[Rfam]
RNA sequence: CCAUGGGCUUGUGCCCAUGGCUACAUGAUGCCGCCGCUCCGCGGCU
Numbered sequence: 001c002c003a004u005g006g007g008c009u010u011g012u013g014c015c016c017a018u019g020g021c022u023a024c025a026u027g028a029u030g031c032c033g034c035c036g037c038u039c040c041g042c043g044g045c046u
Stems, first nucleotide, its partner, number of pairs: 001020008033045005
Acido-Lenti-1 RNA: a 46-nucleotide RNA from Roseimaritima ulvae. Rfam classes the family as a small RNA. Pairs were carried over by alignment from the consensus structure, which is taken from published work.